[Rfam]
RNA sequence: CGGCCCGCUUUGGCACUAGCACAUUUUUGCUCUGAGUUGUAGGGUUUGAGCAAUUAUGUGUAGUGCCAAGGUGGGACG
Number, nucleotide and partner (000 for none) at each position: 001c000002g000003g000004c075005c074006c073007g072008c071009u000010u069011u068012g067013g066014c065015a064016c063017u062018a000019g061020c060021a059022c058023a057024u056025u000026u000027u053028u052029g051030c050031u049032c048033u000034g000035a000036g000037u000038u000039g000040u000041a000042g000043g000044g000045u000046u000047u000048g032049a031050g030051c029052a028053a027054u000055u000056a024057u023058g022059u021060g020061u019062a017063g016064u015065g014066c013067c012068a011069a010070g000071g008072u007073g006074g005075g004076a000077c000078g000
The record is a 78-nucleotide RNA from Rhinopomastus cyanomelas, which matches "mir-96 microRNA precursor family" in Rfam. A search with the family's covariance model found it, with a score of 80 bits. Taxonomically the source falls in Rhinopomastus (Eukaryota, Deuterostomia, Gnathostomata, Sarcopterygii).